[Rfam]
RNA: EGFOA RNA
RNA sequence: AGCCUUCCAGAAGUGCGAAAGCGACCGUACUAGUCCACGAAAGUGGAGGAUAAUACUUCAAAUAGGUGAAAAACCUUGCUUCGUAAAGCUAGACCUGGAGAAGUUAGAGAAGUAG
Numbered sequence: 001a002g003c004c005u006u007c008c009a010g011a012a013g014u015g016c017g018a019a020a021g022c023g024a025c026c027g028u029a030c031u032a033g034u035c036c037a038c039g040a041a042a043g044u045g046g047a048g049g050a051u052a053a054u055a056c057u058u059c060a061a062a063u064a065g066g067u068g069a070a071a072a073a074c075c076u077u078g079c080u081u082c083g084u085a086a087a088g089c090u091a092g093a094c095c096u097g098g099a100g101a102a103g104u105u106a107g108a109g110a111a112g113u114a115g
Stems, first nucleotide, its partner, number of pairs: 006099005027094002030092004034047005054114006064076003078104005